RNA sequence: CCUACUAAGGUGUGUCUUUGGUUUCCUGUUUUGGGACACAAAAGAACUGCAAAAAAAGAAGUGUGGAUUUGGAAAGGGCUGGGGCCAGCUUGCUCUCAGGUUCAGCAUCAAUCAUUCUACAAAG
Numbered sequence: 001c002c003u004a005c006u007a008a009g010g011u012g013u014g015u016c017u018u019u020g021g022u023u024u025c026c027u028g029u030u031u032u033g034g035g036a037c038a039c040a041a042a043a044g045a046a047c048u049g050c051a052a053a054a055a056a057a058g059a060a061g062u063g064u065g066g067a068u069u070u071g072g073a074a075a076g077g078g079c080u081g082g083g084g085c086c087a088g089c090u091u092g093c094u095c096u097c098a099g100g101u102u103c104a105g106c107a108u109c110a111a112u113c114a115u116u117c118u119a120c121a122a123a124g
Stems, first nucleotide, its partner, number of pairs: 002049001011040007020026002065117003069114001087102006
Dot-bracket structure: .(........(((((((..((...)).......)))))))........)...............(((.(.................((((((....))))))...........)))).......
This 124-nucleotide RNA sequence from Sciurus vulgaris belongs to the Rfam family "Small nucleolar RNA SNORA38". Pairs were carried over by alignment from the consensus structure, which was predicted with RNAfold. Rfam's curators write: ACA38 is a member of the H/ACA class of snoRNA that guide the sites of modification of uridines to pseudouridines. Gene Ontology terms of the family: RNA processing, Cajal body and nucleolus. Rfam 15.1 lists 628 matches to the family in 149 species. By type it is an H/ACA-box small nucleolar RNA. A search with the family's covariance model found it, with a score of 95 bits. Lineage of the source: Eukaryota > Eumetazoa > Tetrapoda > Amniota > Sciurus.